[Rfam]
RNA: U2 spliceosomal RNA
Organism: Athelia psychrophila
RNA sequence: CUGACCUCCCCUGCAGCUUAGAUCAAGUGUAGUAUCUGUUCUUAAUAGUUUAACCACUAUUAUGAGGGCACCGCCCUCAUUCUUGGUUAUCUUAUUUUUGCCGCCCUUGCUCUUCUGUGCUCUGCUUGCAACACGGAGGACAUGAUGACCUUGGUACUGCACUACCGCCUUGUGUCGUCGGGGGAUU
Numbered sequence: 001c002u003g004a005c006c007u008c009c010c011c012u013g014c015a016g017c018u019u020a021g022a023u024c025a026a027g028u029g030u031a032g033u034a035u036c037u038g039u040u041c042u043u044a045a046u047a048g049u050u051u052a053a054c055c056a057c058u059a060u061u062a063u064g065a066g067g068g069c070a071c072c073g074c075c076c077u078c079a080u081u082c083u084u085g086g087u088u089a090u091c092u093u094a095u096u097u098u099u100g101c102c103g104c105c106c107u108u109g110c111u112c113u114u115c116u117g118u119g120c121u122c123u124g125c126u127u128g129c130a131a132c133a134c135g136g137a138g139g140a141c142a143u144g145a146u147g148a149c150c151u152u153g154g155u156a157c158u159g160c161a162c163u164a165c166c167g168c169c170u171u172g173u174g175u176c177g178u179c180g181g182g183g184g185a186u187u
Stems, first nucleotide, its partner, number of pairs: 001016002043062006063079007111140008123130002143180006150172001153169003